The record is a 112-nucleotide sequence from Candidatus Protofrankia datiscae, which matches "Glycine riboswitch aptamer" in Rfam. Its family is annotated with glycine biosynthetic process in the Gene Ontology.
[Rfam]
RNA sequence: CAACUCUGGAAAGCGGACGUUCCGUGACGUCCCGCCGACGGUGAAAGCCCACGCAUAUCGGUCGCGGGUCGAUAUGCCGGGUGAAGCUCUCAGGCAUACGUACAGAGGGGGA
Number, nucleotide and partner (000 for none) at each position: 001c110002a000003a000004c107005u106006c105007u104008g103009g000010a000011a000012a000013g000014c000015g032016g031017a030018c029019g000020u000021u000022c000023c000024g000025u000026g000027a000028c000029g018030u017031c016032c015033c000034g095035c094036c093037g091038a090039c000040g000041g089042u000043g087044a000045a000046a000047g082048c081049c080050c079051a000052c000053g000054c000055a000056u000057a000058u000059c000060g000061g000062u000063c000064g000065c000066g000067g000068g000069u000070c000071g000072a000073u000074a000075u000076g000077c000078c000079g050080g049081g048082u047083g000084a000085a000086g000087c043088u000089c041090u038091c037092a000093g036094g035095c034096a000097u000098a000099c000100g000101u000102a000103c008104a007105g006106a005107g004108g000109g000110g001111g000112a000